Notes:
Shown here is a 104-nucleotide RNA sequence from Pongamia pinnata, a member of the family "Plastid-rps12 3UTR RNA". The organism belongs to Pongamia, within Eukaryota. Plastid rpl20 is a non-coding RNA (ncRNA) recognised in plastids. The sequence is in the family's curated seed alignment. Rfam 15.1 lists 1,710 matches to the family in 1,426 species. For this family Rfam cites "Retrograde signaling in plants: A critical review focusing on the GUN pathway and beyond" (Richter et al., Plant Commun, 2023).
[Rfam]
RNA sequence: GGUUUUGAUUGGUGUAAACCUAAUCACCUCAAUUUGCAAUUUAAGAUGAUAAAAACUUUCCCAUUGGUAACAAAUAGUUAUUCAUUAAGCGGGGGAAAUAUUAU
Number, nucleotide and partner (000 for none) at each position: 001g000002g000003u000004u000005u000006u000007g000008a000009u023010u022011g021012g020013u000014g000015u000016a000017a000018a000019c000020c012021u011022a010023a009024u000025c000026a000027c000028c000029u000030c000031a000032a000033u000034u000035u000036g000037c000038a000039a000040u000041u000042u000043a000044a000045g000046a000047u000048g000049a000050u000051a000052a000053a000054a000055a000056c000057u000058u000059u094060c093061c092062c091063a085064u084065u000066g082067g081068u080069a079070a078071c077072a000073a000074a000075u000076a000077g071078u070079u069080a068081u067082u066083c000084a064085u063086u000087a000088a000089g000090c000091g062092g061093g060094g059095g000096a000097a000098a000099u000100a000101u000102u000103a000104u000